[Rfam]
RNA: che1 RNA
RNA sequence: CGGACAGGGGGGUUCCUGCCAUCGGCGGGGCCUGUCCGAUCGGGCCGCGCGACUGCGCGGCCAGUGGUUGUCGCUCGGGGGUGAUCGCCG
Numbered sequence: 001c002g003g004a005c006a007g008g009g010g011g012g013u014u015c016c017u018g019c020c021a022u023c024g025g026c027g028g029g030g031c032c033u034g035u036c037c038g039a040u041c042g043g044g045c046c047g048c049g050c051g052a053c054u055g056c057g058c059g060g061c062c063a064g065u066g067g068u069u070g071u072c073g074c075u076c077g078g079g080g081g082u083g084a085u086c087g088c089c090g
Stems, first nucleotide, its partner, number of pairs: 001038008014030007043062008
Dot-bracket structure: ((((((((.....(((((((...)))))))))))))))....((((((((....))))))))............................